Shown here is a 387-nucleotide sequence from Streptomyces sp. 150FB, a member of the family "transfer-messenger RNA". It scores 169 bits against the family's covariance model. Pairs were carried over by alignment from the consensus structure, which is taken from published work. NCBI's taxonomy places the organism under Bacteria, Bacillati, Actinomycetes, Streptomycetaceae, Streptomyces.
Nucleotides: 387
Stems, first nucleotide, its partner, number of pairs: 001383007019356006030346003034342004043331005048069005055084006129151002132148005168204006175195005181189001183217006222250006229243001233267006270304004276300003280296002285323004292316001360376005
Number, partner (000 for none) and nucleotide at each position: 001383g002382g003381g004380g005379a006378u007377g008000a009000u010000c011000g012000g013000u014000u015000u016000c017000g018000a019356c020355a021354g022353c023352g024351g025000a026000u027000g028000u029000c030346g031345a032344a033000g034342c035341a036340g037339g038000u039000g040000a041000a042000g043331c044330g045329a046328g047327c048069c049068g050067a051066g052065g053000a054000a055084g056083c057082g058081g059080c060079a061000a062000u063000g064000a065052u066051c067050u068049c069048g070000u071000u072000a073000a074000c075000c076000a077000u078000a079060u080059g081058u082057c083056g084055c085000a086000a087000a088000c089000a090000a091000u092000a093000a094000u095000c096000g097000c098000c099000a100000c101000u102000u103000c104000u105000a106000a107000g108000c109000g110000c111000g112000a113000u114000u115000c116000c117000u118000c119000c120000g121000c122000c123000u124000u125000c126000g127000c128000u129151c130150u131000c132148g133147c134146u135145g136144c137000c138000u139000a140000a141000u142000u143000a144136g145135c146134a147133g148132c149000u150130a151129g152000c153000g154000a155000a156000g157000a158000c159000u160000c161000c162000g163000c164000g165000g166000a167000g168204u169203g170202u171201c172200a173199g174000c175195c176194c177193g178192g179191g180000g181189c182000u183217g184216u185215u186214c187213c188212c189181g190000a191179c192178c193177c194176g195175g196000a197000u198000c199173c200172u201171g202170g203169c204168a205000u206000c207000a208000g209000c210000u211000a212188g213187g214186g215185g216184a217183c218000u219000a220000a221000a222250c223249c224248u225247g226246u227245a228000a229243g230000u231000c232000c233267g234266g235265u236264c237263a238262c239000g240000g241000g242000a243229c244000g245227u246226g247225c248224a249223g250222g251000g252000a253000a254000a255000c256000c257000a258000a259000a260000c261000a262238g263237u264236g265235a266234c267233u268000g269000a270304g271303c272302c273301c274000g275000u276300c277299g278298g279000a280296g281295a282000c283000u284000u285323g286322u287321c288320u289000g290000c291000g292316u293000g294000a295281u296280c297000u298278c299277c300276g301273g302272g303271g304270c305000c306000g307000a308000g309000a310000a311000a312000a313000g314000c315000g316292a317000a318000g319000c320288a321287g322286a323285c324000u325000g326000c327047g328046c329045u330044c331043g332000g333000a334000g335000a336000a337000g338000c339037c340036c341035u342034g343000g344032u345031u346030c347000c348000g349000c350000a351024c352023c353022g354021u355020u356019g357000g358000a359000c360376g361375c362374g363373g364372g365000u366000u367000c368000g369000a370000u371000u372364c373363c374362c375361g376360c377007c378006a379005u380004c381003u382002c383001c384000a385000c386000c387000a